[Rfam]
Burkholderia RNA 7 (anti-hemB): an 85-nucleotide sequence from Inhella gelatinilytica. Lineage of the source: Bacteria > Pseudomonadati > Betaproteobacteria > Burkholderiales > Inhella.
RNA sequence: UCCCUGCUUUUCCUCCCUGAGCAGGAGCCUUGUGUGAUGACAGCAUCAAGGCUUUCAACCCCGGCCGGUGGCCGGGGUUUUUUUU
Numbered sequence: 001u002c003c004c005u006g007c008u009u010u011u012c013c014u015c016c017c018u019g020a021g022c023a024g025g026a027g028c029c030u031u032g033u034g035u036g037a038u039g040a041c042a043g044c045a046u047c048a049a050g051g052c053u054u055u056c057a058a059c060c061c062c063g064g065c066c067g068g069u070g071g072c073c074g075g076g077g078u079u080u081u082u083u084u085u
Stems, first nucleotide, its partner, number of pairs: 003025006027052006059077008
Rfam 15.1 lists 479 matches to the family in 458 species.